Annotation:
The record is a 73-nucleotide sequence from Shimia gijangensis, which matches "Singlet oxygen resistance RNA X" in Rfam. The organism belongs to Shimia, within Bacteria. Its family is annotated with response to photooxidative stress in the Gene Ontology. Rfam 15.1 lists 528 matches to the family in 356 species. The literature on the family includes a 2016 paper in RNA Biol by Peng et al., "Regulation of a polyamine transporter by the conserved 3' UTR-derived sRNA SorX confers resistance to singlet oxygen and organic hydroperoxides in Rhodobacter sphaeroides". SorX (RSs2461)like SorY is a singlet oxygen induced sRNA that counteracts oxidative stress by targeting mRNA for a transporter in Rhodobacter. It also has an impact on resistance against organic hydroperoxides. The match comes from Rfam's covariance-model search (79 bits).
Nucleotides: 073
Stems, first nucleotide, its partner, number of pairs: 008029007047067008
Number, partner (000 for none) and nucleotide at each position: 001000a002000u003000c004000c005000c006000g007000u008029g009028c010027a011026u012025g013024u014023c015000c016000g017000g018000g019000u020000a021000a022000u023014g024013a025012u026011a027010u028009g029008c030000a031000c032000c033000u034000c035000c036000c037000u038000g039000u040000u041000g042000g043000a044000c045000u046000a047067g048066g049065c050064c051063c052062g053061g054060a055000c056000u057000u058000g059000a060054u061053c062052c063051g064050g065049g066048c067047c068000u069000c070000u071000u072000u073000u
It is annotated as a small RNA.